Rfam assigns this 71-nucleotide RNA sequence from Salvator merianae to the family "Small nucleolar RNA SNORD56". Rfam 15.1 lists 796 matches to the family in 432 species. Rfam links the family to the GO terms RNA processing and nucleolus. A reference for the family is Galardi et al. (2002), "Purified box C/D snoRNPs are able to reproduce site-specific 2'-O-methylation of target RNA in vitro", Mol Cell Biol.

[Rfam]
RNA sequence: UUGCCAUGAUGGUUACAUUUUUCGUCAACAGUAUUUCACUUUGUGAAUGAUGAUGCUUGAAGUCUGAGCAG
Dot-bracket structure: .(((...((((...........)))).........................................))).
Numbered sequence: 001u002u003g004c005c006a007u008g009a010u011g012g013u014u015a016c017a018u019u020u021u022u023c024g025u026c027a028a029c030a031g032u033a034u035u036u037c038a039c040u041u042u043g044u045g046a047a048u049g050a051u052g053a054u055g056c057u058u059g060a061a062g063u064c065u066g067a068g069c070a071g
Stems, first nucleotide, its partner, number of pairs: 002070003008026004